RNA: MIR8565 microRNA precursor family
Organism: Amborella trichopoda
RNA sequence: CCCACACCCAUGUGUGUAGGACCCCAAACGAUCACCAUUAAAUUUGGUACAGAUCUCUAGAAACGUUAUCAUAUGGGUGUGAGACUUGAUUUUUCUAGAUAUAUGUACCAAAUUUAAUGGUAAUCCUUUGGAAUCCUGCACACAUGGGUGUGGG
Numbered sequence: 001c002c003c004a005c006a007c008c009c010a011u012g013u014g015u016g017u018a019g020g021a022c023c024c025c026a027a028a029c030g031a032u033c034a035c036c037a038u039u040a041a042a043u044u045u046g047g048u049a050c051a052g053a054u055c056u057c058u059a060g061a062a063a064c065g066u067u068a069u070c071a072u073a074u075g076g077g078u079g080u081g082a083g084a085c086u087u088g089a090u091u092u093u094u095c096u097a098g099a100u101a102u103a104u105g106u107a108c109c110a111a112a113u114u115u116a117a118u119g120g121u122a123a124u125c126c127u128u129u130g131g132a133a134u135c136c137u138g139c140a141c142a143c144a145u146g147g148g149u150g151u152g153g154g
Stems, first nucleotide, its partner, number of pairs: 002153012015140007024131005030125003034121018053102002056099008065090004069082005